[Rfam]
Nucleotides: 090
Stems, first nucleotide, its partner, number of pairs: 001089007010026003028044005066082005
Number, partner (000 for none) and nucleotide at each position: 001089g002088c003087c004086c005085c006084g007083g008000u009000g010026g011025u012024g013000a014000a015000a016000u017000u018000g019000g020000u021000a022000g023000a024012c025011a026010c027000u028044g029043c030042g031041g032040a033000c034000u035000u036000a037000a038000a039000a040032u041031c042030c043029g044028c045000c046000g047000c048000u049000u050000u051000c052000c053000u054000g055000a056000a057000a058000a059000g060000g061000g062000g063000c064000g065000u066082g067081c068080c069079g070078g071000u072000u073000c074000g075000a076000c077000c078070c079069c080068g081067g082066c083007c084006c085005g086004g087003g088002g089001c090000a